Rfam assigns this 308-nucleotide RNA sequence from Gossypium anomalum to the family "Plant signal recognition particle RNA". The literature on the family includes a 2002 paper in Curr Opin Struct Biol by Wild et al., "Towards the structure of the mammalian signal recognition particle". Rfam classes the family as a non-coding RNA gene. Gene Ontology terms of the family: SRP-dependent cotranslational protein targeting to membrane, signal sequence recognition and signal recognition particle, endoplasmic reticulum targeting.
[Rfam]
RNA sequence: GCCGAGCUUGGUGACGCAAGCUUGUAACCUGAGUGGGGGCUGUAAAAUGCUGGAACUCGGGUUCGUGCUCUUAAGUCGGGUCCCACUGUGGUUAGAUUCUUGCUUGCCCAUUCCAAGCCAGGAGUCGAGUUGUGAGAUUCGAGCUAAGGCCCGGGUCUCGUGAUUCCUAAAGAAGAGGGUACUGCGUGAGGCUGGUUUCACAGAGCAACGAUCACCUCUCGCUCUUUGCAGUGGAAGGAUUACAAGCUUAGUCCACAGUCAACCCAGUGAGACUCAAUGGUUCGAACCCUGGUUGGACUAACAUUUUU
Numbered sequence: 001g002c003c004g005a006g007c008u009u010g011g012u013g014a015c016g017c018a019a020g021c022u023u024g025u026a027a028c029c030u031g032a033g034u035g036g037g038g039g040c041u042g043u044a045a046a047a048u049g050c051u052g053g054a055a056c057u058c059g060g061g062u063u064c065g066u067g068c069u070c071u072u073a074a075g076u077c078g079g080g081u082c083c084c085a086c087u088g089u090g091g092u093u094a095g096a097u098u099c100u101u102g103c104u105u106g107c108c109c110a111u112u113c114c115a116a117g118c119c120a121g122g123a124g125u126c127g128a129g130u131u132g133u134g135a136g137a138u139u140c141g142a143g144c145u146a147a148g149g150c151c152c153g154g155g156u157c158u159c160g161u162g163a164u165u166c167c168u169a170a171a172g173a174a175g176a177g178g179g180u181a182c183u184g185c186g187u188g189a190g191g192c193u194g195g196u197u198u199c200a201c202a203g204a205g206c207a208a209c210g211a212u213c214a215c216c217u218c219u220c221g222c223u224c225u226u227u228g229c230a231g232u233g234g235a236a237g238g239a240u241u242a243c244a245a246g247c248u249u250a251g252u253c254c255a256c257a258g259u260c261a262a263c264c265c266a267g268u269g270a271g272a273c274u275c276a277a278u279g280g281u282u283c284g285a286a287c288c289c290u291g292g293u294u295g296g297a298c299u300a301a302c303a304u305u306u307u308u
Stems, first nucleotide, its partner, number of pairs: 001040003004023007028037003044307006051300003056295001058291003061287005068280002071277002074274004078265004087257001089255003102247005108238002111236005117229002120226006127166015143150002167172001174219005185210003192203003